[Rfam]
RNA: Enterovirus 5' cloverleaf cis-acting replication element
Organism: Enterovirus alphacoxsackie
RNA sequence: UUAAAACAGCCUGUGGGUUGCACCCACCCACAGGGCCCACUGGGCGCCAGCACUCUGGUAUCGCGGUACCUUUGUGCGCCUGUUUUAUGA
Number, nucleotide and partner (000 for none) at each position: 001u000002u087003a086004a085005a084006a083007c082008a081009g000010c034011c033012u032013g031014u030015g029016g028017g027018u026019u000020g000021c000022a000023c000024c000025c000026a018027c017028c016029c015030a014031c013032a012033g011034g010035g045036c044037c043038c000039a000040c000041u000042g000043g037044g036045c035046g079047c078048c000049a000050g077051c076052a075053c074054u000055c000056u000057g070058g069059u068060a067061u000062c000063g000064c000065g000066g000067u060068a059069c058070c057071u000072u000073u000074g053075u052076g051077c050078g047079c046080c000081u008082g007083u006084u005085u004086u003087a002088u000089g000090a000